This 87-nucleotide RNA sequence from Candidatus Parepulonipiscium sp. PG-Nuni2H_MBin01 belongs to the Rfam family "Glycine riboswitch aptamer".
The organism belongs to Candidatus Parepulonipiscium, within Bacteria.
The base pairs follow the family's consensus structure.
The match comes from Rfam's covariance-model search (63 bits).

RNA sequence: UUAUGGCAUUCUGGAGACACCUAUUAAAUAGGGGCCGAAGGGGCAAGCAUAAGCUAAUCUCUCAGGCAAAAGGACAGAAAUGUUUUA
Number, nucleotide and partner (000 for none) at each position: 001u000002u000003a000004u000005g000006g000007c000008a000009u079010u078011c077012u076013g075014g000015a000016g000017a000018c000019a000020c032021c031022u030023a029024u000025u000026a000027a000028a000029u023030a022031g021032g020033g000034g067035c066036c065037g063038a062039a000040g000041g061042g060043g059044c000045a000046a000047g054048c053049a000050u000051a000052a000053g048054c047055u000056a000057a000058u000059c043060u042061c041062u038063c037064a000065g036066g035067c034068a000069a000070a000071a000072g000073g000074a000075c013076a012077g011078a010079a009080a000081u000082g000083u000084u000085u000086u000087a000